[Rfam]
RNA sequence: AUUUCCAGAAAAGAGACGGACAGGGUCCUUUUGUCCGUCGCUUUUUUGGGAUUUU
Number, nucleotide and partner (000 for none) at each position: 001a053002u000003u051004u050005c049006c048007a047008g046009a045010a044011a043012a042013g041014a000015g039016a038017c037018g036019g035020a034021c033022a000023g000024g000025g000026u000027c000028c000029u000030u000031u000032u000033g021034u020035c019036c018037g017038u016039c015040g000041c013042u012043u011044u010045u009046u008047u007048g006049g005050g004051a003052u000053u001054u000055u000